[Rfam]
RNA sequence: UUGUGCUAGAUGGGGAGUUAGCGGUGCCCUGUAACCUGCAAUCCGCUAUAGCAGGAUUGAAGUCCUCACCGAGGCCUUAACUUGUAAGGUCUGCCCUAUGAAAGUGGCGUUGAUGGUUGGGUCCCACGCAACAUAAGCCCGUGAACUUCGUCAGGUCCGGAAGGAAGCAGCGAUAAGCGGUUACUUGUGUGUGCCGUGGCAAACCUGGCCUGAGUUAACUACAUAGGUAACGCUUAUAAGUUAUUGUCAGAGUGAGGUGCACAA
Numbered sequence: 001u002u003g004u005g006c007u008a009g010a011u012g013g014g015g016a017g018u019u020a021g022c023g024g025u026g027c028c029c030u031g032u033a034a035c036c037u038g039c040a041a042u043c044c045g046c047u048a049u050a051g052c053a054g055g056a057u058u059g060a061a062g063u064c065c066u067c068a069c070c071g072a073g074g075c076c077u078u079a080a081c082u083u084g085u086a087a088g089g090u091c092u093g094c095c096c097u098a099u100g101a102a103a104g105u106g107g108c109g110u111u112g113a114u115g116g117u118u119g120g121g122u123c124c125c126a127c128g129c130a131a132c133a134u135a136a137g138c139c140c141g142u143g144a145a146c147u148u149c150g151u152c153a154g155g156u157c158c159g160g161a162a163g164g165a166a167g168c169a170g171c172g173a174u175a176a177g178c179g180g181u182u183a184c185u186u187g188u189g190u191g192u193g194c195c196g197u198g199g200c201a202a203a204c205c206u207g208g209c210c211u212g213a214g215u216u217a218a219c220u221a222c223a224u225a226g227g228u229a230a231c232g233c234u235u236a237u238a239a240g241u242u243a244u245u246g247u248c249a250g251a252g253u254g255a256g257g258u259g260c261a262c263a264a
Base pairs, nucleotide, nucleotide: 001264002263003262004261005260006259009058010057011056012030013029014028015027017025018024019023035055036054037053038052039051064257065256066255067254068253069252073248074247075246079242080241081240082239083238084237085236086235087234088233092229093228096226097225098224099223100222104219105218106216107215108214115210116209117208118207119206120205121204122203124199125198126197127196128195129191130190132189133188134187135186136185137182139180140179141178142177148173149172150171151170156165157164158163
Dot-bracket structure: ((((((..(((((((.(((...))).))))....(((((...........)))))))).....((((((...(((...((((((((((...((..(((((...(((((......((((((((.(((((((.((((((.((((.....((((....(((....)))....))))...)))).)..)))))))...)))))...))))))))...))).))..))))).))...))))))))))...)))...)))))).))))))
Rfam assigns this 264-nucleotide RNA sequence from Clostridium fallax to the family "Bacterial large signal recognition particle RNA". The base pairs follow the family's consensus structure, which is taken from published work. It is annotated as a non-coding RNA gene. On this family, see Rosenblad et al., Nucleic Acids Res 2003: "SRPDB: Signal Recognition Particle Database". The source organism's lineage runs through Bacteria, Bacillota, Eubacteriales, Clostridiaceae and Clostridium. The signal recognition particle (SRP) is a universally conserved ribonucleoprotein involved in the co-translational targeting of proteins to membranes.